[Rfam]
RNA sequence: AUUGUUCACUCUCCCUCAAGGCUUCCAACGCAAUAACCAGCUACGUACAUGUAACUGUGUUACGGCUGCAGGCUUGAGGCCUUUGGGGGAGAGUGGUCAA
Numbered sequence: 001a002u003u004g005u006u007c008a009c010u011c012u013c014c015c016u017c018a019a020g021g022c023u024u025c026c027a028a029c030g031c032a033a034u035a036a037c038c039a040g041c042u043a044c045g046u047a048c049a050u051g052u053a054a055c056u057g058u059g060u061u062a063c064g065g066c067u068g069c070a071g072g073c074u075u076g077a078g079g080c081c082u083u084u085g086g087g088g089g090a091g092a093g094u095g096g097u098c099a100a
Base pairs, nucleotide, nucleotide: 006096007095008094009093010092011091012090013089014088015087017085018083019082020081021080022079023078024077025076